[Rfam]
The record is a 69-nucleotide RNA from Austrofundulus limnaeus, which matches "mir-338 microRNA precursor family" in Rfam. The base pairs follow the family's consensus structure, which was predicted with RNAalifold. A search with the family's covariance model found it, with a score of 85 bits.
RNA sequence: CCUGCAACAACAUCCUGGUGCUGCCUGAGUGGUUCAAACAAACUCCAGCAUCAGUGAUUUUGUUGCAGG
Numbered sequence: 001c002c003u004g005c006a007a008c009a010a011c012a013u014c015c016u017g018g019u020g021c022u023g024c025c026u027g028a029g030u031g032g033u034u035c036a037a038a039c040a041a042a043c044u045c046c047a048g049c050a051u052c053a054g055u056g057a058u059u060u061u062g063u064u065g066c067a068g069g
Stems, first nucleotide, its partner, number of pairs: 006064005012058003015054009